[Rfam]
RNA sequence: CCCGAAAGAUGGUGAACUAUGCCUGAAUAGGGUGAAGCCAGAGGAAACUCUGGUGGAGGCUCGUAGCGAUUCUGACGUGCAAAUCGAUCGUCGAAUUUGGGUAUAGGGGCGAAAGACUAAUCGAACCAUUUGGAUAAGCUACUUGGUGGUUAAGAGGCUUCAAUGCCUAGUGAGAGUUGAGCUUUGCGACACUGUCAAAUUGCGGGGACUACCUUAGAGCCUUUUGCUACCGCCUCUAUGCUGAAAAGUGUAGUUUGGGCACCAAGGGUAAUGACCUUGGGUAUGGUAAUAACGCGAAGGGAUUGGUUAAUCCGCAGCCAAGUCCUAACGGCUUGCUAGUUGGACAACUAGUUACUAGUUGCGCAACUAGUUAGCUCAUGGAUGCAGUUCACAGACUAGAUGGCAGUGGGUCUUUCUUGUUUGAAAGGCUUAAGAUAUAGUCGGUCCUAUUGCGAAAGCAGUCUGAACGAAUGAAGACUAUUGGUUGCUCAACCUAUUCGAGCUGAUAGUCCCGAGUCGUUUGGGGAUUCAUUUGAAUCUAGGGUUAAAUGCUAGUAGCUGGUU
Numbered sequence: 001c002c003c004g005a006a007a008g009a010u011g012g013u014g015a016a017c018u019a020u021g022c023c024u025g026a027a028u029a030g031g032g033u034g035a036a037g038c039c040a041g042a043g044g045a046a047a048c049u050c051u052g053g054u055g056g057a058g059g060c061u062c063g064u065a066g067c068g069a070u071u072c073u074g075a076c077g078u079g080c081a082a083a084u085c086g087a088u089c090g091u092c093g094a095a096u097u098u099g100g101g102u103a104u105a106g107g108g109g110c111g112a113a114a115g116a117c118u119a120a121u122c123g124a125a126c127c128a129u130u131u132g133g134a135u136a137a138g139c140u141a142c143u144u145g146g147u148g149g150u151u152a153a154g155a156g157g158c159u160u161c162a163a164u165g166c167c168u169a170g171u172g173a174g175a176g177u178u179g180a181g182c183u184u185u186g187c188g189a190c191a192c193u194g195u196c197a198a199a200u201u202g203c204g205g206g207g208a209c210u211a212c213c214u215u216a217g218a219g220c221c222u223u224u225u226g227c228u229a230c231c232g233c234c235u236c237u238a239u240g241c242u243g244a245a246a247a248g249u250g251u252a253g254u255u256u257g258g259g260c261a262c263c264a265a266g267g268g269u270a271a272u273g274a275c276c277u278u279g280g281g282u283a284u285g286g287u288a289a290u291a292a293c294g295c296g297a298a299g300g301g302a303u304u305g306g307u308u309a310a311u312c313c314g315c316a317g318c319c320a321a322g323u324c325c326u327a328a329c330g331g332c333u334u335g336c337u338a339g340u341u342g343g344a345c346a347a348c349u350a351g352u353u354a355c356u357a358g359u360u361g362c363g364c365a366a367c368u369a370g371u372u373a374g375c376u377c378a379u380g381g382a383u384g385c386a387g388u389u390c391a392c393a394g395a396c397u398a399g400a401u402g403g404c405a406g407u408g409g410g411u412c413u414u415u416c417u418u419g420u421u422u423g424a425a426a427g428g429c430u431u432a433a434g435a436u437a438u439a440g441u442c443g444g445u446c447c448u449a450u451u452g453c454g455a456a457a458g459c460a461g462u463c464u465g466a467a468c469g470a471a472u473g474a475a476g477a478c479u480a481u482u483g484g485u486u487g488c489u490c491a492a493c494c495u496a497u498u499c500g501a502g503c504u505g506a507u508a509g510u511c512c513c514g515a516g517u518c519g520u521u522u523g524g525g526g527a528u529u530c531a532u533u534u535g536a537a538u539c540u541a542g543g544g545u546u547a548a549a550u551g552c553u554a555g556u557a558g559c560u561g562g563u564u
Stems, first nucleotide, its partner, number of pairs: 001562002004559001008552001012550002017106011028094001030062004037054007066091004071087002074085002108546003
RNA: Eukaryotic large subunit ribosomal RNA, nucleotides 824 to 1387
Organism: Mycena chlorophos